[Rfam]
Nucleotides: 259
Base pairs, nucleotide, nucleotide: 001232002231003230004229005228007226008225009224011222013208014207015166016165017164019163020162021161022160023159026156027155028154034061035060036059037058038057039056070132071131073129074128075127084097107124110121175195176194177193209221210220211219212218238259239258240257243256244255245254246253247252
Number, partner (000 for none) and nucleotide at each position: 001232a002231c003230a004229a005228u006000a007226g008225g009224c010000g011222g012000g013208u014207u015166c016165u017164c018000u019163a020162a021161g022160g023159g024000c025000g026156g027155u028154u029000c030000g031000g032000c033000a034061c035060a036059c037058c038057c039056c040000a041000u042000u043000u044000u045000u046000a047000a048000c049000a050000c051000g052000a053000a054000a055000g056039g057038g058037g059036g060035u061034g062000a063000u064000g065000c066000c067000a068000c069000u070132g071131a072000c073129g074128g075127u076000u077000u078000a079000u080000g081000a082000g083000g084097c085000a086000a087000u088000g089000a090000u091000g092000g093000u094000u095000u096000c097084g098000a099000u100000u101000a102000g103000c104000u105000u106000u107124g108000c109000g110121a111000c112000u113000u114000u115000a116000a117000u118000c119000g120000u121110u122000g123000u124107c125000g126000u127075a128074c129073u130000u131071u132070c133000u134000u135000u136000u137000c138000c139000u140000c141000a142000u143000a144000a145000c146000a147000a148000a149000a150000a151000a152000u153000a154028g155027a156026c157000c158000g159023c160022c161021c162020u163019u164017g165016a166015g167000a168000u169000c170000a171000u172000a173000u174000u175195a176194a177193c178000a179000g180000g181000g182000g183000g184000c185000g186000g187000u188000c189000u190000a191000u192000c193177g194176u195175u196000c197000u198000u199000u200000a201000u202000u203000g204000g205000c206000c207014g208013a209221u210220c211219c212218u213000c214000c215000u216000g217000g218212a219211g220210g221209a222011c223000c224009g225008u226007u227000u228005a229004u230003u231002g232001u233000a234000g235000g236000a237000g238259c239258c240257g241000u242000a243256g244255g245254c246253g247252u248000g249000c250000c251000a252247g253246c254245g255244c256243c257240c258239g259238g